[Rfam]
RNA: c-di-GMP-I riboswitch aptamer
Organism: Aminipila luticellarii
RNA sequence: UAAAGCCAAGGGCAAACCCGCUGAAAACCGGGGGCGCAAAGCCGAGGGUCUAAGACGUUUUGGAACGUUAUGAUAGCCUGGCUGCCAAA
Numbered sequence: 001u002a003a004a005g006c007c008a009a010g011g012g013c014a015a016a017c018c019c020g021c022u023g024a025a026a027a028c029c030g031g032g033g034g035c036g037c038a039a040a041g042c043c044g045a046g047g048g049u050c051u052a053a054g055a056c057g058u059u060u061u062g063g064a065a066c067g068u069u070a071u072g073a074u075a076g077c078c079u080g081g082c083u084g085c086c087a088a089a
Base pairs, nucleotide, nucleotide: 012037013036017032018031019030020029022027040083041082042081043080045079046078047077048074049073050072055068056067057066058065